[Rfam]
The family of this 86-nucleotide sequence from Nicotiana sylvestris is "Small nucleolar RNA snoR14". NCBI's taxonomy places the organism under Eukaryota, Viridiplantae, Euphyllophyta, Gunneridae, Nicotiana. It is annotated as a C/D-box small nucleolar RNA. The pairing is the family consensus, mapped onto this sequence. Clan: SNORD110 clan. The literature on the family includes a 2001 paper in RNA by Brown et al., "Multiple snoRNA gene clusters from Arabidopsis". Rfam 15.1 lists 668 matches to the family in 221 species.

RNA sequence: AAGAAGUGAUGAUAGAAUUCAUGUCUGUCAAUCCACUGAAUACAUUAUCAUGAUGUAAAGAGUGAAUCCCGACAGGUUCUGAUCUU
Number, nucleotide and partner (000 for none) at each position: 001a086002a085003g084004a083005a000006g000007u000008g000009a000010u000011g000012a000013u000014a000015g000016a000017a000018u000019u000020c000021a000022u000023g000024u000025c000026u000027g000028u000029c000030a000031a000032u000033c000034c000035a000036c000037u000038g000039a000040a000041u000042a000043c000044a000045u000046u000047a000048u000049c000050a000051u000052g000053a000054u000055g000056u000057a000058a000059a000060g000061a000062g000063u000064g000065a000066a000067u000068c000069c000070c000071g000072a000073c000074a000075g000076g000077u000078u000079c000080u000081g000082a000083u004084c003085u002086u001